Ribosomal protein L10 leader: a 137-nucleotide RNA sequence from Williamsoniiplasma somnilux. Pairs were carried over by alignment from the consensus structure, which was predicted with CMfinder.
[Rfam]
RNA sequence: AUAUUGAUGCUAUUAGUACCAAAGACAGUAACUGGGGCAACCCUUAAUUCGUUACCGAGGGAAAAUGUUUUUAUUAUUAAAAGUAAAAACUUUUUCGUUUACCUCGGCUUUAAAAUCCGAGGUUUUUAUUUGGAAAC
Numbered sequence: 001a002u003a004u005u006g007a008u009g010c011u012a013u014u015a016g017u018a019c020c021a022a023a024g025a026c027a028g029u030a031a032c033u034g035g036g037g038c039a040a041c042c043c044u045u046a047a048u049u050c051g052u053u054a055c056c057g058a059g060g061g062a063a064a065a066u067g068u069u070u071u072u073a074u075u076a077u078u079a080a081a082a083g084u085a086a087a088a089a090c091u092u093u094u095u096c097g098u099u100u101a102c103c104u105c106g107g108c109u110u111u112a113a114a115a116u117c118c119g120a121g122g123u124u125u126u127u128a129u130u131u132g133g134a135a136a137c
Base pairs, nucleotide, nucleotide: 028055029054030053031052032051034043035042036041102122103121104120105119106118107117109115110114

The source organism's lineage runs through Bacteria, Bacillati, Mycoplasmatota, Entomoplasmatales and Williamsoniiplasma. Rfam classes the family as a cis-regulatory leader. A search with the family's covariance model found it, with a score of 72 bits.